[Rfam]
RNA sequence: GAGAAAUGAGGAAAAUGUAAUCAAGUCUUGAGUUACCAGUGACGACUUCAGAUCCAACUCCGAUCUCACUCCAGCA
Numbered sequence: 001g002a003g004a005a006a007u008g009a010g011g012a013a014a015a016u017g018u019a020a021u022c023a024a025g026u027c028u029u030g031a032g033u034u035a036c037c038a039g040u041g042a043c044g045a046c047u048u049c050a051g052a053u054c055c056a057a058c059u060c061c062g063a064u065c066u067c068a069c070u071c072c073a074g075c076a
Stems, first nucleotide, its partner, number of pairs: 001067004
RNA: Small nucleolar RNA SNORD19
Organism: Acipenser ruthenus